Nucleotides: 281
Stems, first nucleotide, its partner, number of pairs: 001281004007275001009273001012242007020057005033047005066265005086100005101116004106111001117212003121208003136197001243253004
Number, partner (000 for none) and nucleotide at each position: 001281u002280g003279u004278g005000u006000g007275g008000u009273g010000a011000g012242u013241u014240u015239g016238c017237a018236c019000u020057a021056g022055a023054g024053g025000c026000c027000a028000c029000g030000c031000a032000a033047g034046c035045g036044c037043a038000c039000a040000a041000g042000u043037u044036g045035c046034g047033c048000a049000g050000a051000u052000g053024c054023c055022u056021u057020u058000g059000g060000a061000a062000a063000g064000g065000u066265c067264u068263g069262a070261g071000a072000c073000u074000a075000u076000g077000u078000c079000g080000u081000u082000u083000a084000a085000a086100g087099g088098u089097c090096c091000g092000a093000g094000a095000g096090g097089g098088a099087c100086c101116c102115c103114c104113a105000a106111a107000c108000a109000a110000u111106u112000c113104u114103g115102g116101g117212g118211c119210g120000a121208g122207u123206g124000a125000a126000g127000a128000g129000c130000a131000a132000a133000u134000g135000u136197u137000g138000c139000g140000u141000u142000c143000c144000g145000c146000g147000g148000u149000g150000a151000g152000g153000u154000u155000g156000c157000a158000g159000a160000g161000g162000a163000g164000g165000u166000a167000g168000c169000u170000u171000g172000c173000u174000a175000c176000c177000g178000a179000u180000g181000c182000g183000c184000u185000c186000c187000u188000g189000c190000c191000g192000c193000g194000u195000g196000a197136a198000u199000u200000u201000g202000g203000g204000a205000a206123c207122a208121c209000c210119u211118g212117u213000g214000a215000c216000a217000g218000g219000a220000u221000u222000g223000c224000u225000u226000a227000c228000a229000g230000c231000u232000c233000g234000a235000u236018g237017u238016g239015c240014a241013a242012a243253a244252c245251c246250c247000c248000a249000c250246g251245g252244g253243u254000a255000a256000c257000u258000c259000a260000a261070u262069u263068c264067a265066g266000a267000c268000u269000a270000c271000u272000c273009c274000u275007c276000c277000a278004c279003g280002c281001a